A member of the RNA family "HNH endonuclease-associated RNA and ORF (HEARO) RNA" from Thiorhodovibrio frisius, 242 nucleotides long. The family's RNA type in Rfam is non-coding RNA gene. A reference for the family is Weinberg et al. (2009), "Exceptional structured noncoding RNAs revealed by bacterial metagenome analysis", Nature. The organism belongs to Thiorhodovibrio, within Bacteria.
[Rfam]
RNA sequence: GUCAACUACCCCGCCCUGAAGGGCGGAGCUUGAAAGAGCUUGGUUGACCAGCCUAAGUUCGCCUGACCAGGAGGUCGAAAGGGGCUACGUGUGUCACAGGUCGUUCAGACUCACCGGCGGAUGCUUCCUCAGUCAGCCGCUCUGAAAGGCCAGUAUCAUGCUGGCGCAAGGUAAAACGCCGAAGGUCUGAUCGCCGCCGCAGGGCGGGAGCCGGUGGCACACAUUGGCGAGGGGAGCGAGCC
Numbered sequence: 001g002u003c004a005a006c007u008a009c010c011c012c013g014c015c016c017u018g019a020a021g022g023g024c025g026g027a028g029c030u031u032g033a034a035a036g037a038g039c040u041u042g043g044u045u046g047a048c049c050a051g052c053c054u055a056a057g058u059u060c061g062c063c064u065g066a067c068c069a070g071g072a073g074g075u076c077g078a079a080a081g082g083g084g085c086u087a088c089g090u091g092u093g094u095c096a097c098a099g100g101u102c103g104u105u106c107a108g109a110c111u112c113a114c115c116g117g118c119g120g121a122u123g124c125u126u127c128c129u130c131a132g133u134c135a136g137c138c139g140c141u142c143u144g145a146a147a148g149g150c151c152a153g154u155a156u157c158a159u160g161c162u163g164g165c166g167c168a169a170g171g172u173a174a175a176a177c178g179c180c181g182a183a184g185g186u187c188u189g190a191u192c193g194c195c196g197c198c199g200c201a202g203g204g205c206g207g208g209a210g211c212c213g214g215u216g217g218c219a220c221a222c223a224u225u226g227g228c229g230a231g232g233g234g235a236g237c238g239a240g241c242c
Stems, first nucleotide, its partner, number of pairs: 001048008010028001012025002015022002029038003051228003055224001056086005089222009099212001111145002115139004120134003125236006152188002159184001162181005